[Rfam]
RNA sequence: GUAUAGGCAGCAGGAAAAGCUCAUAUAAGUUCGCUGUCAUGGCGCGAACGUCUCUACGGAGCCGCCGAAGGCUCUUCUAUGAGUGUCUGUUGGAAGGGG
Numbered sequence: 001g002u003a004u005a006g007g008c009a010g011c012a013g014g015a016a017a018a019g020c021u022c023a024u025a026u027a028a029g030u031u032c033g034c035u036g037u038c039a040u041g042g043c044g045c046g047a048a049c050g051u052c053u054c055u056a057c058g059g060a061g062c063c064g065c066c067g068a069a070g071g072c073u074c075u076u077c078u079a080u081g082a083g084u085g086u087c088u089g090u091u092g093g094a095a096g097g098g099g
Base pairs, nucleotide, nucleotide: 019084020083021082022081023080024079025078029049030048031047032046033045034044058075059074060073061072062071063070